[Rfam]
RNA sequence: UGUGGAAUUAAUUCAAGGGGUAGUUCCCCAUCCAAGAGCUACUUUACCAUAUUCCAAAUUU
Dot-bracket structure: ................((((((((((.........))))))))))................